[Rfam]
RNA sequence: UUGGGUUGCUGAAUUAGAGAUUGGCGCCCGUUUUUUAAACUUUUCAAAUUUGGAGUUCUAUAAUGUCUCUAAGCGUUGAAGCGAAAGCUAAAAUCGUUGCUGAGUUCGGUCGUGAUGCU
Numbered sequence: 001u002u003g004g005g006u007u008g009c010u011g012a013a014u015u016a017g018a019g020a021u022u023g024g025c026g027c028c029c030g031u032u033u034u035u036u037a038a039a040c041u042u043u044u045c046a047a048a049u050u051u052g053g054a055g056u057u058c059u060a061u062a063a064u065g066u067c068u069c070u071a072a073g074c075g076u077u078g079a080a081g082c083g084a085a086a087g088c089u090a091a092a093a094u095c096g097u098u099g100c101u102g103a104g105u106u107c108g109g110u111c112g113u114g115a116u117g118c119u
Base pairs, nucleotide, nucleotide: 007026008025009024010023011022012021049073050072051071052070053069054068055067
Ribosomal S15 leader: a 119-nucleotide RNA from Edwardsiella hoshinae.
Pairs were carried over by alignment from the consensus structure, which is taken from published work.
Rfam classes the family as a cis-regulatory leader.
The literature on the family includes a 1996 paper in Biochimie by Benard et al., "Pseudoknot and translational control in the expression of the S15 ribosomal protein".
From the family's description: The E. coli Ribosomal S15 gene 5' UTR can form two alternative structures. One that is a series of three hairpins, The other includes a pseudoknot. This structure causes translational regulation of the S15 protein. The alignment of this family contains only the final two hairpins which are conserved in other species, and also includes the complete region that forms the alternate structures.